[Rfam]
RNA: Rhizobiales sRNA Atu_C9
Organism: Ciceribacter lividus
RNA sequence: GGUCAACGCAAGGAGGCACACAUGGGACUGACCAAUUCCUUGAAUGUCCUGAUCGUCGGUGCAGCGUUUGUUUUCAUAGCCACCAUGCUGUUCAUCUGAGCCAACAGAUGACCAGCCGCCGGAACAGGGCAUAGCAGCGUCCUAGCUGGCUAGAAUAUGCAAGAAUUCUUAAAAAGGCGUAUACCGACACCGUUCGGUAUGCGCCUU
Numbered sequence: 001g002g003u004c005a006a007c008g009c010a011a012g013g014a015g016g017c018a019c020a021c022a023u024g025g026g027a028c029u030g031a032c033c034a035a036u037u038c039c040u041u042g043a044a045u046g047u048c049c050u051g052a053u054c055g056u057c058g059g060u061g062c063a064g065c066g067u068u069u070g071u072u073u074u075c076a077u078a079g080c081c082a083c084c085a086u087g088c089u090g091u092u093c094a095u096c097u098g099a100g101c102c103a104a105c106a107g108a109u110g111a112c113c114a115g116c117c118g119c120c121g122g123a124a125c126a127g128g129g130c131a132u133a134g135c136a137g138c139g140u141c142c143u144a145g146c147u148g149g150c151u152a153g154a155a156u157a158u159g160c161a162a163g164a165a166u167u168c169u170u171a172a173a174a175a176g177g178c179g180u181a182u183a184c185c186g187a188c189a190c191c192g193u194u195c196g197g198u199a200u201g202c203g204c205c206u207u
Stems, first nucleotide, its partner, number of pairs: 015048004024040004174207013